[Rfam]
RNA sequence: AAUAUGCAUGUGAUGAAAACAUAGUUCAGCUGAGAUUUUGUGAAGAACAAUCUUUCGCUCCUAUCUGAUGCAUUUC
Numbered sequence: 001a002a003u004a005u006g007c008a009u010g011u012g013a014u015g016a017a018a019a020c021a022u023a024g025u026u027c028a029g030c031u032g033a034g035a036u037u038u039u040g041u042g043a044a045g046a047a048c049a050a051u052c053u054u055u056c057g058c059u060c061c062u063a064u065c066u067g068a069u070g071c072a073u074u075u076c
Stems, first nucleotide, its partner, number of pairs: 004073005
A member of the RNA family "Small nucleolar RNA snR60/Z15/Z230/Z193/J17" from Hymenochirus boettgeri, 76 nucleotides long. Rfam classes the family as a C/D-box small nucleolar RNA. The organism belongs to Hymenochirus, within Eukaryota. The match comes from Rfam's covariance-model search (58 bits). Clan: SNORD77 clan. The base pairs follow the family's consensus structure.